[Rfam]
RNA: Small nucleolar RNA SNORD27
Organism: Equus caballus
RNA sequence: ACUCCAUGAUGAACGUAAAAAGACAAGCAUAUGACUGACCUCAAAAGUGAUGUCAUCUUCCUACUGAGAAGU
Numbered sequence: 001a002c003u004c005c006a007u008g009a010u011g012a013a014c015g016u017a018a019a020a021a022g023a024c025a026a027g028c029a030u031a032u033g034a035c036u037g038a039c040c041u042c043a044a045a046a047g048u049g050a051u052g053u054c055a056u057c058u059u060c061c062u063a064c065u066g067a068g069a070a071g072u
Stems, first nucleotide, its partner, number of pairs: 001072002003069002